[Rfam]
RNA sequence: AAAGUUGCUGCAGUUAAAAUCUGCAGCAACUUUAGUUGCUGGAUCUUGGGAGAGGGCAGGCGGUCCGCCGGGAGGCGAGCCACAGCCCGUCCCCGCCCCUUGCCUCUUGGCGCCCCCUUGAUGCUCUUAGCUGAGUGUCCCGGGGCCUGAAGCGUUUACUUUGAAAAAAUUAGAGGGUUCAAAGCAGGUCCAAGCCGCCUGGAUACCUCAGCUAAGAAUAAUGGAAUAGGACCGCGGUUCUAUUUUCUGGGUUUUCAGAACUGAGGCCAUGAUUAAGAGGGACGGGCGGGGGCAUUCGUAUUGCGCCGCUAGAGGUGAAAUUCUUGGACCGGCGCAGUUCGGACCAGAGUGAAAGCAUUUGCCAAGAAUGUUUUCAUUAAUCAAGAACGAAAGUCGGAGGUUCGAAGACGAUCAGAUACCGUCGUAGUUCCGACCAUAAACGAUGCCGACUGGAGAUGUGGCGGCGUUAUUCCCAUGACCCGCUGGGCAGCUUCCAAGAAACCAAAGUCUUUGGGUUUUUAGGUUCCGGGGGGGUAUGGUUGCAAAGCUGAAACUUAAAGGAAU
Numbered sequence: 001a002a003a004g005u006u007g008c009u010g011c012a013g014u015u016a017a018a019a020u021c022u023g024c025a026g027c028a029a030c031u032u033u034a035g036u037u038g039c040u041g042g043a044u045c046u047u048g049g050g051a052g053a054g055g056g057c058a059g060g061c062g063g064u065c066c067g068c069c070g071g072g073a074g075g076c077g078a079g080c081c082a083c084a085g086c087c088c089g090u091c092c093c094c095g096c097c098c099c100u101u102g103c104c105u106c107u108u109g110g111c112g113c114c115c116c117c118u119u120g121a122u123g124c125u126c127u128u129a130g131c132u133g134a135g136u137g138u139c140c141c142g143g144g145g146c147c148u149g150a151a152g153c154g155u156u157u158a159c160u161u162u163g164a165a166a167a168a169a170u171u172a173g174a175g176g177g178u179u180c181a182a183a184g185c186a187g188g189u190c191c192a193a194g195c196c197g198c199c200u201g202g203a204u205a206c207c208u209c210a211g212c213u214a215a216g217a218a219u220a221a222u223g224g225a226a227u228a229g230g231a232c233c234g235c236g237g238u239u240c241u242a243u244u245u246u247c248u249g250g251g252u253u254u255u256c257a258g259a260a261c262u263g264a265g266g267c268c269a270u271g272a273u274u275a276a277g278a279g280g281g282a283c284g285g286g287c288g289g290g291g292g293c294a295u296u297c298g299u300a301u302u303g304c305g306c307c308g309c310u311a312g313a314g315g316u317g318a319a320a321u322u323c324u325u326g327g328a329c330c331g332g333c334g335c336a337g338u339u340c341g342g343a344c345c346a347g348a349g350u351g352a353a354a355g356c357a358u359u360u361g362c363c364a365a366g367a368a369u370g371u372u373u374u375c376a377u378u379a380a381u382c383a384a385g386a387a388c389g390a391a392a393g394u395c396g397g398a399g400g401u402u403c404g405a406a407g408a409c410g411a412u413c414a415g416a417u418a419c420c421g422u423c424g425u426a427g428u429u430c431c432g433a434c435c436a437u438a439a440a441c442g443a444u445g446c447c448g449a450c451u452g453g454a455g456a457u458g459u460g461g462c463g464g465c466g467u468u469a470u471u472c473c474c475a476u477g478a479c480c481c482g483c484u485g486g487g488c489a490g491c492u493u494c495c496a497a498g499a500a501a502c503c504a505a506a507g508u509c510u511u512u513g514g515g516u517u518u519u520u521a522g523g524u525u526c527c528g529g530g531g532g533g534g535u536a537u538g539g540u541u542g543c544a545a546a547g548c549u550g551a552a553a554c555u556u557a558a559a560g561g562a563a564u
Stems, first nucleotide, its partner, number of pairs: 011528001013526001019525001031386002035381003279375004283370002287366001291363004297341002301337008312323003349356002393434006403427001407423004445516003448509003452492002457487001459485006466479003530556003538549004
RNA: Eukaryotic small subunit ribosomal RNA, nucleotides 656 to 1219